[Rfam]
RNA sequence: UCACAAGUUCAAGGCCACAGCAGAAGUGCUCACAGCAAGGCCUGGCAGAAUCCAGCAAGUCUGUGAUUUCUGCU
Numbered sequence: 001u002c003a004c005a006a007g008u009u010c011a012a013g014g015c016c017a018c019a020g021c022a023g024a025a026g027u028g029c030u031c032a033c034a035g036c037a038a039g040g041c042c043u044g045g046c047a048g049a050a051u052c053c054a055g056c057a058a059g060u061c062u063g064u065g066a067u068u069u070c071u072g073c074u
Stems, first nucleotide, its partner, number of pairs: 013042004019074007027037002046063004051058001
The family of this 74-nucleotide RNA from Crocodylus porosus is "Mammalian CPEB3 ribozyme". Pairs were carried over by alignment from the consensus structure, which is taken from published work. The match comes from Rfam's covariance-model search (38 bits). The mammalian CPEB3 ribozyme is a self cleaving RNA located in the second intron of the CPEB3 gene which belongs to a family of genes regulating messenger RNA polyadenylation.